Background
This 102-nucleotide sequence from Alicyclobacillus sp. SO9 belongs to the Rfam family "Purine riboswitch aptamer". It scores 79 bits against the family's covariance model. The family's consensus secondary structure is taken from published work. The source organism's lineage runs through Bacteria, Bacillati, Bacilli, Caryophanales and Alicyclobacillus.
[Rfam]
RNA sequence: ACAAAAUCACACACCAACCCUCAUAUAACAUCGGGAAUACGGCUCGAUGGUUUCUACCAAGUGACCUUAAAUCGCUUGACUAUGAGAACGUUCUGGUUUGCA
Dot-bracket structure: ...................((((((...(((((((.......)))))))........(((((((.......)))))))..))))))................